[Rfam]
RNA sequence: GAAGAUCGCAAUGGUUCUUGUCGUGGUGAUAAAGCGCAUGGGCAGGAUGGUGUAACCAUCCGGCGAUCAGCCCCAUGCGCGGUAGUUCAAGCUCCUGACGGGGCUUUUUUUGUGCCCUGAA
Number, nucleotide and partner (000 for none) at each position: 001g000002a000003a000004g000005a000006u000007c028008g000009c026010a000011a000012u000013g000014g000015u000016u000017c000018u000019u000020g000021u000022c000023g000024u000025g000026g009027u000028g007029a000030u000031a000032a000033a000034g080035c079036g078037c077038a076039u075040g074041g073042g072043c000044a000045g061046g060047a059048u058049g057050g056051u000052g000053u000054a000055a000056c050057c049058a048059u047060c046061c045062g000063g071064c070065g000066a000067u000068c000069a000070g064071c063072c042073c041074c040075a039076u038077g037078c036079g035080c034081g000082g000083u000084a000085g000086u000087u000088c000089a106090a105091g104092c103093u102094c101095c100096u000097g000098a000099c000100g095101g094102g093103g092104c091105u090106u089107u000108u000109u000110u000111u000112g000113u000114g000115c000116c000117c000118u000119g000120a000121a000
A member of the RNA family "Rhizobiales sRNA Atu_C8" from Rhizobium etli, 121 nucleotides long. The base pairs follow the family's consensus structure, which was predicted with CMfinder. On this family, see Wilms et al., RNA Biol 2012: "Deep sequencing uncovers numerous small RNAs on all four replicons of the plant pathogen Agrobacterium tumefaciens". It is annotated as a small RNA. Lineage of the source: Bacteria > Pseudomonadota > Alphaproteobacteria > Rhizobium > Rhizobium etli.